The family of this 134-nucleotide RNA from Brucella gallinifaecis is "Alphaproteobacterial sRNA ar35". The source organism's lineage runs through Bacteria, Pseudomonadota, Alphaproteobacteria, Brucellaceae and Brucella. On this family, see del Val et al., RNA Biol 2012: "A survey of sRNA families in alpha-proteobacteria". It is annotated as a small RNA.
[Rfam]
RNA sequence: AUUAUCCGAGCAAGGUUUUAGAACUUUGCUUGAAUAAGAGCGUGACAAAUUCGUCUCCAGUCUUUGACCACGGAUGUACUGGCACUGAUUGUUGAGACUUAUGAAGGUCGGGUCCAUGCCCGGCCUUUUUAUUU
Numbered sequence: 001a002u003u004a005u006c007c008g009a010g011c012a013a014g015g016u017u018u019u020a021g022a023a024c025u026u027u028g029c030u031u032g033a034a035u036a037a038g039a040g041c042g043u044g045a046c047a048a049a050u051u052c053g054u055c056u057c058c059a060g061u062c063u064u065u066g067a068c069c070a071c072g073g074a075u076g077u078a079c080u081g082g083c084a085c086u087g088a089u090u091g092u093u094g095a096g097a098c099u100u101a102u103g104a105a106g107g108u109c110g111g112g113u114c115c116a117u118g119c120c121c122g123g124c125c126u127u128u129u130u131a132u133u134u
Stems, first nucleotide, its partner, number of pairs: 003047001005045002007042001016039005050101001053098004059090004065084002068082003103128009113118001